Rfam assigns this 249-nucleotide sequence from Sinosporangium album to the family "c-di-AMP riboswitch aptamer (ydaO/yuaA leader)". Taxonomically the source falls in Sinosporangium (Bacteria, Actinomycetota, Actinomycetes, Streptosporangiales). This family represents a conserved RNA structure found upstream of the ydaO and yuaA genes in Bacillus subtilis and related genes in other bacteria. The ydaO/yuaA element is thought to act as a genetic 'off' switch for the ydaO and yuaA genes in its native state. It is believed that the element may be triggered during osmotic shock leading to activation of ydaO, a predicted amino acid transporter gene, and members of the yuaA-yubG operon which code for KtrA and KtrB K+ transporters. The match comes from Rfam's covariance-model search (48 bits).

RNA sequence: GAGACACGGCCGCCGAAUCCGCGACAUGCGGAACCGGGGACCCACCGAGCGCCGCUCGUCCAGUCCCGGACCCGGACCUUAGGCCGAUUCCCCCCGGAAGACGCCUUCCCCGCCGGGCCCACCCGACCUGACGACGAAGCUCACGUCCCAACAGGGGUGAAUCAGCACGGCCGCCCACGCGGCCCGCGCUGUAGGGCACUUCCAAGCCCGAACCCGUCAGCUAACCCGGUAGGCGGCAUGGAAGCAAGG
Numbered sequence: 001g002a003g004a005c006a007c008g009g010c011c012g013c014c015g016a017a018u019c020c021g022c023g024a025c026a027u028g029c030g031g032a033a034c035c036g037g038g039g040a041c042c043c044a045c046c047g048a049g050c051g052c053c054g055c056u057c058g059u060c061c062a063g064u065c066c067c068g069g070a071c072c073c074g075g076a077c078c079u080u081a082g083g084c085c086g087a088u089u090c091c092c093c094c095c096g097g098a099a100g101a102c103g104c105c106u107u108c109c110c111c112g113c114c115g116g117g118c119c120c121a122c123c124c125g126a127c128c129u130g131a132c133g134a135c136g137a138a139g140c141u142c143a144c145g146u147c148c149c150a151a152c153a154g155g156g157g158u159g160a161a162u163c164a165g166c167a168c169g170g171c172c173g174c175c176c177a178c179g180c181g182g183c184c185c186g187c188g189c190u191g192u193a194g195g196g197c198a199c200u201u202c203c204a205a206g207c208c209c210g211a212a213c214c215c216g217u218c219a220g221c222u223a224a225c226c227c228g229g230u231a232g233g234c235g236g237c238a239u240g241g242a243a244g245c246a247a248g249g
Base pairs, nucleotide, nucleotide: 011235012234013233014232018032019031020030021029022028033230034229035228036227037226038225043154155215156214157213163191164190165189166188194209195208196207197206